[Rfam]
RNA sequence: AGGAGUGUAGCUCAGUUGGUAGAGCAUCGGUCUCCAAAACCGAGGGUCAUGGGUUCGAGUCCCCUCACUCCUG
Numbered sequence: 001a002g003g004a005g006u007g008u009a010g011c012u013c014a015g016u017u018g019g020u021a022g023a024g025c026a027u028c029g030g031u032c033u034c035c036a037a038a039a040c041c042g043a044g045g046g047u048c049a050u051g052g053g054u055u056c057g058a059g060u061c062c063c064c065u066c067a068c069u070c071c072u073g
Stems, first nucleotide, its partner, number of pairs: 001072007010025004027043005049065001051063003

The family of this 73-nucleotide RNA from Sphingomonas ginsenosidivorax is "tRNA". A search with the family's covariance model found it, with a score of 69 bits. By type it is a transfer RNA. The family is grouped with related families in Rfam's "tRNA clan".